[Rfam]
Description: Rfam assigns this 112-nucleotide sequence from Solilutibacter pythonis to the family "Xanthomonadaceae sRNA sX13".

Nucleotides: 112
Base pairs, nucleotide, nucleotide: 004013014042015041016040017039018038020035021034022033023032044072045071046070047069048068049067050066052065053064054063081106082105083104084103085102086101087100089098090097
Number, partner (000 for none) and nucleotide at each position: 001000a002000a003000c004013g005000u006000c007000u008000g009000u010000c011000a012000c013004u014042g015041g016040a017039u018038c019000g020035c021034u022033u023032c024000c025000c026000u027000c028000c029000c030000c031000u032023g033022a034021a035020g036000c037000a038018g039017a040016u041015c042014c043000c044072g045071g046070a047069a048068c049067g050066g051000c052065a053064u054063c055000c056000c057000u058000c059000c060000c061000c062000a063054g064053a065052u066050c067049c068048g069047u070046u071045c072044c073000a074000a075000c076000c077000c078000c079000u080000c081106g082105c083104c084103c085102c086101g087100c088000c089098g090097g091000c092000c093000c094000c095000c096000u097090c098089c099000g100087g101086c102085g103084g104083g105082g106081u107000u108000u109000u110000u111000u112000a
It is annotated as a small RNA. The match comes from Rfam's covariance-model search (64 bits).